[Rfam]
RNA sequence: GGAUCGAUGAUGACUUGAAAAAAAAAUAAAGAAACCUUGGAAAUCUGAACAAAAUGAGUGACUACCCUGAGCUGAGGUCC
Numbered sequence: 001g002g003a004u005c006g007a008u009g010a011u012g013a014c015u016u017g018a019a020a021a022a023a024a025a026a027u028a029a030a031g032a033a034a035c036c037u038u039g040g041a042a043a044u045c046u047g048a049a050c051a052a053a054a055u056g057a058g059u060g061a062c063u064a065c066c067c068u069g070a071g072c073u074g075a076g077g078u079c080c
Stems, first nucleotide, its partner, number of pairs: 001080005032059001035056001037052003
RNA: Small nucleolar RNA SNORD116
Organism: Tupaia belangeri